[Rfam]
This 89-nucleotide RNA sequence from Kutzneria viridogrisea belongs to the Rfam family "Glycine riboswitch aptamer". NCBI's taxonomy places the organism under Bacteria, Bacillati, Actinomycetes, Pseudonocardiaceae, Kutzneria viridogrisea. Gene Ontology term of the family: glycine biosynthetic process. From the family's description: This family represents the bacterial glycine riboswitch. The pairing is the family consensus, mapped onto this sequence.
RNA sequence: GCGACUCUGAAAAGCAGGUGCUCGCACCUCGCCGAAGGUGAAAGCCGCUCGCGCGGCGAAACUCUCAGGCCCAUGACAGAGGGGGAGGC
Numbered sequence: 001g002c003g004a005c006u007c008u009g010a011a012a013a014g015c016a017g018g019u020g021c022u023c024g025c026a027c028c029u030c031g032c033c034g035a036a037g038g039u040g041a042a043a044g045c046c047g048c049u050c051g052c053g054c055g056g057c058g059a060a061a062c063u064c065u066c067a068g069g070c071c072c073a074u075g076a077c078a079g080a081g082g083g084g085g086a087g088g089c
Base pairs, nucleotide, nucleotide: 002084005081006080007079008078009077016029017028018027019026031070032069033068034066035065038064040062044057045056